[Rfam]
RNA: Small nucleolar RNA SNORD77
Organism: Nyctibius bracteatus
RNA sequence: AGAAUGUUGCUUUCACAGCUCGAAGAUCUAAACAUGAAGUAUUUUAUCAGUAUUCUGCUUCUCU
Numbered sequence: 001a002g003a004a005u006g007u008u009g010c011u012u013u014c015a016c017a018g019c020u021c022g023a024a025g026a027u028c029u030a031a032a033c034a035u036g037a038a039g040u041a042u043u044u045u046a047u048c049a050g051u052a053u054u055c056u057g058c059u060u061c062u063c064u
Base pairs, nucleotide, nucleotide: 001062002061003060004035005034006033007032008031011025012024013023014022040052041051042050043049